[Rfam]
RNA sequence: CCAGGUUGAGGUAGUAGGUUGUAUAGUUGAGAGUUAAAACCCUGGGAGAUAACUGUACAACCUCCUAGCUUUCCCUGA
Numbered sequence: 001c002c003a004g005g006u007u008g009a010g011g012u013a014g015u016a017g018g019u020u021g022u023a024u025a026g027u028u029g030a031g032a033g034u035u036a037a038a039a040c041c042c043u044g045g046g047a048g049a050u051a052a053c054u055g056u057a058c059a060a061c062c063u064c065c066u067a068g069c070u071u072u073c074c075c076u077g078a
Base pairs, nucleotide, nucleotide: 002077003076004075005074008071009070010069012067013066014065016063017062018061019060020059021058022057023056024055025054026053027052041048
RNA: let-7 microRNA precursor family
Organism: Cyprinodon variegatus